[Rfam]
RNA sequence: AAGCGUUGAAGCGUUGUGUCGUGCCAGUAAGCGGUGCGCGUGGAGCUUUAUCAUGGUUGGAUGGUUCCCAAAAACUGGCGAUGAAAACAUCACUU
Numbered sequence: 001a002a003g004c005g006u007u008g009a010a011g012c013g014u015u016g017u018g019u020c021g022u023g024c025c026a027g028u029a030a031g032c033g034g035u036g037c038g039c040g041u042g043g044a045g046c047u048u049u050a051u052c053a054u055g056g057u058u059g060g061a062u063g064g065u066u067c068c069c070a071a072a073a074a075c076u077g078g079c080g081a082u083g084a085a086a087a088c089a090u091c092a093c094u095u
Stems, first nucleotide, its partner, number of pairs: 001048004011041003015038008024078004061090003
RNA: drum RNA